[Rfam]
RNA sequence: GUUUGUCUCAGAGGAGUGAAUCUGAGAACACGGAGUGAAAUGGUUUGAACUGCCAUCAUAUAGUAUCUAUUGGUAUCAGAUAUUUUUGCAUAUCACUAAUUUACUUUGUGUUCUCAGGUCACCCCUUUGAGCCAACC
Numbered sequence: 001g002u003u004u005g006u007c008u009c010a011g012a013g014g015a016g017u018g019a020a021u022c023u024g025a026g027a028a029c030a031c032g033g034a035g036u037g038a039a040a041u042g043g044u045u046u047g048a049a050c051u052g053c054c055a056u057c058a059u060a061u062a063g064u065a066u067c068u069a070u071u072g073g074u075a076u077c078a079g080a081u082a083u084u085u086u087u088g089c090a091u092a093u094c095a096c097u098a099a100u101u102u103a104c105u106u107u108g109u110g111u112u113c114u115c116a117g118g119u120c121a122c123c124c125c126u127u128u129g130a131g132c133c134a135a136c137c
Stems, first nucleotide, its partner, number of pairs: 007131002011127004016122004024115016

Notes:
Rfam assigns this 137-nucleotide RNA from Lupinus angustifolius to the family "MIR398 microRNA precursor family". The organism belongs to Lupinus, within Eukaryota. Gene Ontology terms of the family: miRNA-mediated post-transcriptional gene silencing and RISC complex. The match comes from Rfam's covariance-model search (63 bits).